[Rfam]
Shown here is an 88-nucleotide sequence from Sphingomonas lacunae, a member of the family "skipping-rope RNA". The base pairs follow the family's consensus structure, which is taken from published work.
RNA sequence: AUCCCUAGAGGUGGGAACCGCCACCCCACGCACCCGCAAGGGUAGAGGCUUCGAGCCGAGAGAUCGCGGAUGGCAUCGCGCUAGGGAC
Numbered sequence: 001a002u003c004c005c006u007a008g009a010g011g012u013g014g015g016a017a018c019c020g021c022c023a024c025c026c027c028a029c030g031c032a033c034c035c036g037c038a039a040g041g042g043u044a045g046a047g048g049c050u051u052c053g054a055g056c057c058g059a060g061a062g063a064u065c066g067c068g069g070a071u072g073g074c075a076u077c078g079c080g081c082u083a084g085g086g087a088c
Base pairs, nucleotide, nucleotide: 002087003086004085005084006083007082008081011029012028013027014026015025020074021073022072023071031060032043033042034041035040065080066079067078068077